The family of this 100-nucleotide sequence from Solimonas marina is "Manganese Mn2+ riboswitch aptamer (yybP-ykoY)". The organism belongs to Solimonas, within Bacteria. For this family Rfam cites "Novel small RNA-encoding genes in the intergenic regions of Escherichia coli" (Argaman et al., Curr Biol, 2001).
RNA sequence: CCGUUUUGGGGAGUAGCCGUCCCGCGCAAGGCGGGAGAACGCGUCAACAGACUUGGUCGCUUGCGACCGUGGCGCGUUCAGCAGCGAGGGCCUUCGUGCC
Numbered sequence: 001c002c003g004u005u006u007u008g009g010g011g012a013g014u015a016g017c018c019g020u021c022c023c024g025c026g027c028a029a030g031g032c033g034g035g036a037g038a039a040c041g042c043g044u045c046a047a048c049a050g051a052c053u054u055g056g057u058c059g060c061u062u063g064c065g066a067c068c069g070u071g072g073c074g075c076g077u078u079c080a081g082c083a084g085c086g087a088g089g090g091c092c093u094u095c096g097u098g099c100c
Stems, first nucleotide, its partner, number of pairs: 021035003037079010054069005